Shown here is a 117-nucleotide RNA sequence from Zestomonas carbonaria, a member of the family "Pseudomon-groES RNA". By type it is a cis-regulatory element. It scores 74 bits against the family's covariance model. Lineage of the source: Bacteria > Pseudomonadota > Pseudomonadales > Pseudomonadaceae > Zestomonas.
RNA sequence: UUACCAGUCACCGCAAGGUCGAUGUCGGCAACGACAGUCCGUCUUCUGCGGCCUGCCUCCGGCGGGUCGCAUCCGGCGUAGCCGGAAAUCACUGAAACCGCCGGUGAAGGCACCGGU
Dot-bracket structure: .........(((....))).(.((((......)))).)........(((((((((.......))))))))).((((.....))))..............((((((......))))))